[Rfam]
The family of this 86-nucleotide sequence from Firmicutes bacterium CAG:137 is "ZMP/ZTP riboswitch aptamer (pfl RNA motif)". Lineage of the source: Bacteria > Bacillati > Bacillota. The base pairs follow the family's consensus structure, which is taken from published work.
RNA sequence: CUGACGCCCUGUAACUGACGGAAGAAGUGGAGCACCACGGGGGAGCAGGGCGUCUGGAUUUCUUGCCGGCCGUCUGGGCACACUUA
Numbered sequence: 001c002u003g004a005c006g007c008c009c010u011g012u013a014a015c016u017g018a019c020g021g022a023a024g025a026a027g028u029g030g031a032g033c034a035c036c037a038c039g040g041g042g043g044a045g046c047a048g049g050g051c052g053u054c055u056g057g058a059u060u061u062c063u064u065g066c067c068g069g070c071c072g073u074c075u076g077g078g079c080a081c082a083c084u085u086a
Base pairs, nucleotide, nucleotide: 003054004053005052006051007050008049009048010047011046012045015042016041017074018073019072020071021070027038028037029036030035064080065079066078067077